[Rfam]
RNA sequence: GGCCCGCAUCCAGAGUCGGGUUCACGCCCGACACCAACCUGCAUCCGAGCAAGGUGGCGUUCCCGUACGGGAAGAUGUGGCCGAUCCGGCAAACAACGGACAGGAG
Numbered sequence: 001g002g003c004c005c006g007c008a009u010c011c012a013g014a015g016u017c018g019g020g021u022u023c024a025c026g027c028c029c030g031a032c033a034c035c036a037a038c039c040u041g042c043a044u045c046c047g048a049g050c051a052a053g054g055u056g057g058c059g060u061u062c063c064c065g066u067a068c069g070g071g072a073a074g075a076u077g078u079g080g081c082c083g084a085u086c087c088g089g090c091a092a093a094c095a096a097c098g099g100a101c102a103g104g105a106g
Stems, first nucleotide, its partner, number of pairs: 006078005015032001017030005034057002038054003041050002080090004
Shown here is a 106-nucleotide RNA from Gluconacetobacter johannae, a member of the family "SAM-I/IV (S-adenosyl methionine) riboswitch aptamer". Rfam 15.1 lists 567 matches to the family in 508 species. Clan: SAM clan. It scores 46 bits against the family's covariance model. The family's consensus secondary structure is taken from published work.